The family of this 62-nucleotide RNA from Salmo salar is "mir-17 microRNA precursor family". Rfam's curators write: This family represents the microRNA (miRNA) precursor mir-17, family, which includes mir-20, mir-91, and mir-103. miRNAs are transcribed as ~70nt precursors (modelled here) and subsequently processed by the Dicer enzyme to give a ~22nt product. The organism belongs to Salmo, within Eukaryota. A reference for the family is Liu et al. (2025), "Structural Features Within Precursor microRNA-20a Regulate Dicer-TRBP Processing", J Mol Biol.

[Rfam]
RNA sequence: AAAAGUGCUGUUUGUGCAGGUAGAUAAACUCAUCAGACCUACUGCAAAACCAGCACUUCCUG
Numbered sequence: 001a002a003a004a005g006u007g008c009u010g011u012u013u014g015u016g017c018a019g020g021u022a023g024a025u026a027a028a029c030u031c032a033u034c035a036g037a038c039c040u041a042c043u044g045c046a047a048a049a050c051c052a053g054c055a056c057u058u059c060c061u062g
Stems, first nucleotide, its partner, number of pairs: 001061001003058008012049002015046003019043005